Record summary:
mir-205 microRNA precursor family: a 75-nucleotide sequence from Chanos chanos. The match comes from Rfam's covariance-model search (80 bits). Pairs were carried over by alignment from the consensus structure, which was predicted with RNAalifold. On this family, see Lim et al., Science 2003: "Vertebrate microRNA genes". Its family is annotated with RISC complex and miRNA-mediated post-transcriptional gene silencing in the Gene Ontology.
RNA sequence: GUGUUGUAUCCUUCAUUCCACCGGAGUCUGUGUCUUUACCAAAUCAGAUUUCAGUGGUGUGAAGGGUAUGAAACA
Numbered sequence: 001g002u003g004u005u006g007u008a009u010c011c012u013u014c015a016u017u018c019c020a021c022c023g024g025a026g027u028c029u030g031u032g033u034c035u036u037u038a039c040c041a042a043a044u045c046a047g048a049u050u051u052c053a054g055u056g057g058u059g060u061g062a063a064g065g066g067u068a069u070g071a072a073a074c075a
Stems, first nucleotide, its partner, number of pairs: 011064006019056003023052004028047003